A member of the RNA family "Glycine riboswitch aptamer" from Holtiella tumoricola, 98 nucleotides long. It scores 68 bits against the family's covariance model. Rfam links the family to the GO term glycine biosynthetic process. The organism belongs to Holtiella, within Bacteria.

RNA sequence: UGACGGAACUCUGGAGAGACUUGCGUAAAGCAAGCGCCGAAGGUGCAAGGCAUAGCAUAUAUGCUCAAACUCUCAGGCAAAAGGACAGGGAUUCUAAU
Numbered sequence: 001u002g003a004c005g006g007a008a009c010u011c012u013g014g015a016g017a018g019a020c021u022u023g024c025g026u027a028a029a030g031c032a033a034g035c036g037c038c039g040a041a042g043g044u045g046c047a048a049g050g051c052a053u054a055g056c057a058u059a060u061a062u063g064c065u066c067a068a069a070c071u072c073u074c075a076g077g078c079a080a081a082a083g084g085a086c087a088g089g090g091a092u093u094c095u096a097a098u
Stems, first nucleotide, its partner, number of pairs: 006093002009090005020034004036078003039074002043072001045070001049065006